A member of the RNA family "tRNA" from Kordia sp. SMS9, 73 nucleotides long. The match comes from Rfam's covariance-model search (59 bits). By type it is a transfer RNA. Transfer RNA (tRNA) molecules are approximately 80 nucleotides in length. Their secondary structure includes four short double-helical elements and three loops (D, anti-codon, and T loops). Further hydrogen bonds mediate the characteristic L-shaped molecular structure. tRNAs have two regions of fundamental functional importance: the anti-codon, which is responsible for specific mRNA codon recognition, and the 3' end, to which the tRNAs corresponding amino acid is attached (by aminoacyl-tRNA synthetases). tRNAs cope with the degeneracy of the genetic code in two manners: having more than one tRNA (with a specific anti-codon) for a particular amino acid; and 'wobble' base-pairing, i.e. permitting non-standard base-pairing at the 3rd anti-codon position. The base pairs follow the family's consensus structure, which is taken from published work.
RNA sequence: CUGGGAAUAGAACAAUUGGCUGUUUACUCGCCUUGGACGCGAGAGGAUGUAGGUUCGAAUCCUGCUUCCCAGA
Number, nucleotide and partner (000 for none) at each position: 001c072002u071003g070004g069005g068006a067007a066008u000009a000010g025011a024012a023013c022014a000015a000016u000017u000018g000019g000020c000021u000022g013023u012024u011025u010026a000027c043028u042029c041030g040031c039032c000033u000034u000035g000036g000037a000038c000039g031040c030041g029042a028043g027044a000045g000046g000047a000048u000049g065050u064051a063052g062053g061054u000055u000056c000057g000058a000059a000060u000061c053062c052063u051064g050065c049066u007067u006068c005069c004070c003071a002072g001073a000